The record is a 262-nucleotide RNA from Niallia taxi, which matches "T-box leader" in Rfam. The match comes from Rfam's covariance-model search (129 bits).

[Rfam]
RNA sequence: AAAAAUACGAUGAUGAGGAUAAGUAGUUCUUGAUUUGGGAUUCCACAGAGAGCCGGUGGUUGCUGAGAACCGGUGAAGCCGAUCAAGAAUGAACUCACCUCUGAGUGUUGGCUUGAAACACAUUUGUGCAGUAGAGCUAACCGAGUGACACGCCACUCGUUACCAAAAAAGGAACGAACUGUUCAUUGAGUGCAUACAUGUUUUAUUGUAUGAAUGAGGGUGGUACCGUGGAAAAGCUAAAAAAAGCCUUUUCACCCCUUUU
Numbered sequence: 001a002a003a004a005a006u007a008c009g010a011u012g013a014u015g016a017g018g019a020u021a022a023g024u025a026g027u028u029c030u031u032g033a034u035u036u037g038g039g040a041u042u043c044c045a046c047a048g049a050g051a052g053c054c055g056g057u058g059g060u061u062g063c064u065g066a067g068a069a070c071c072g073g074u075g076a077a078g079c080c081g082a083u084c085a086a087g088a089a090u091g092a093a094c095u096c097a098c099c100u101c102u103g104a105g106u107g108u109u110g111g112c113u114u115g116a117a118a119c120a121c122a123u124u125u126g127u128g129c130a131g132u133a134g135a136g137c138u139a140a141c142c143g144a145g146u147g148a149c150a151c152g153c154c155a156c157u158c159g160u161u162a163c164c165a166a167a168a169a170a171g172g173a174a175c176g177a178a179c180u181g182u183u184c185a186u187u188g189a190g191u192g193c194a195u196a197c198a199u200g201u202u203u204u205a206u207u208g209u210a211u212g213a214a215u216g217a218g219g220g221u222g223g224u225a226c227c228g229u230g231g232a233a234a235a236g237c238u239a240a241a242a243a244a245a246g247c248c249u250u251u252u253c254a255c256c257c258c259u260u261u262u
Base pairs, nucleotide, nucleotide: 007106008105015101016100017099018098026090027089028088029087030086031085041077042076043075052074053073054072055071056070057069108140109139110138111137112136113135114134142159143158144157145156146155147154193212194211195210196209197208198207217259218258219257220256228255229254230253231252232251233250234249